[Rfam]
RNA sequence: GCGGCUGUAUCCGGAAGGAACGGCACGAUUUCCUCUUUUCAAGAACACUUGAUCCGCUCUCUGCUCUUAUCCUUGCGGAAAGAGACAGAAAA
Numbered sequence: 001g002c003g004g005c006u007g008u009a010u011c012c013g014g015a016a017g018g019a020a021c022g023g024c025a026c027g028a029u030u031u032c033c034u035c036u037u038u039u040c041a042a043g044a045a046c047a048c049u050u051g052a053u054c055c056g057c058u059c060u061c062u063g064c065u066c067u068u069a070u071c072c073u074u075g076c077g078g079a080a081a082g083a084g085a086c087a088g089a090a091a092a
Base pairs, nucleotide, nucleotide: 002027003026004024005023006022007021008020010019011018061088062087063086064084065083066082067081068080070079071078072077

A member of the RNA family "pan motif" from Novibacillus thermophilus, 92 nucleotides long. Pairs were carried over by alignment from the consensus structure, which is taken from published work.